A member of the RNA family "Wolbachia sRNA 46" from Trichonephila clavata, 143 nucleotides long. The family's RNA type in Rfam is small RNA.

RNA sequence: AAGAGACCAAGAAAGAUGUCAUCCCAGUGCCCAGACACUGGGAUCCAGAAAACUUCACUUUAAAUGAGCACACCAGGUGGCUGUACAAUAGAAACUGGAUUCCAGUGUCAAGCACUGGAAUGACACCAUCUACUACUCAAAUU
Number, nucleotide and partner (000 for none) at each position: 001a000002a000003g138004a137005g136006a000007c000008c000009a000010a000011g000012a000013a000014a000015g000016a000017u125018g124019u123020c122021a121022u120023c000024c118025c117026a116027g115028u114029g113030c112031c000032c000033a000034g109035a108036c107037a106038c105039u104040g103041g102042g101043a100044u099045c098046c097047a096048g095049a000050a000051a000052a000053c000054u000055u000056c000057a000058c000059u000060u000061u000062a000063a000064a000065u000066g000067a000068g000069c000070a000071c000072a000073c000074c000075a000076g000077g000078u000079g000080g000081c000082u000083g000084u000085a000086c000087a000088a000089u000090a000091g000092a000093a000094a000095c048096u047097g046098g045099a044100u043101u042102c041103c040104a039105g038106u037107g036108u035109c034110a000111a000112g030113c029114a028115c027116u026117g025118g024119a000120a022121u021122g020123a019124c018125a017126c000127c000128a000129u000130c000131u000132a000133c000134u000135a000136c005137u004138c003139a000140a000141a000142u000143u000